[Rfam]
RNA: Hovlinc ribozyme (hominin vlincRNA-located)
Organism: Rhinolophus ferrumequinum
RNA sequence: ACCCAGACAAAUGCCAGGAAUAUGGUGCCUCAGAGCUGGAUGGGCCAGGUGCUUAAUCAAGACAUCUCCUUCUCUCCAACACUGUGCCAACUCAUGAUUCCUAUAACUCGUGCUUAGGGAGAUCUGGACUAGGAGUCAGAGGACCUAUGACUUUGCCAGCCACUGCUAA
Number, nucleotide and partner (000 for none) at each position: 001a000002c000003c000004c000005a000006g000007a000008c000009a000010a000011a167012u000013g000014c000015c000016a000017g161018g160019a000020a000021u000022a000023u000024g000025g154026u000027g152028c000029c000030u150031c149032a148033g000034a146035g145036c000037u000038g000039g000040a000041u000042g000043g000044g000045c000046c084047a083048g082049g000050u000051g000052c133053u132054u131055a130056a000057u000058c000059a000060a070061g069062a000063c000064a000065u000066c000067u000068c000069c061070u060071u122072c121073u120074c119075u118076c117077c000078a000079a000080c000081a000082c048083u047084g046085u000086g000087c000088c000089a000090a000091c000092u106093c000094a104095u103096g102097a000098u000099u000100c000101c000102u096103a095104u094105a000106a092107c142108u141109c000110g000111u138112g137113c000114u135115u134116a000117g076118g075119g074120a073121g072122a071123u000124c000125u000126g000127g000128a000129c000130u055131a054132g053133g052134a115135g114136u000137c112138a111139g000140a000141g108142g107143a000144c000145c035146u034147a000148u032149g031150a030151c000152u027153u000154u025155g000156c000157c000158a000159g000160c018161c017162a000163c000164u000165g000166c000167u011168a000169a000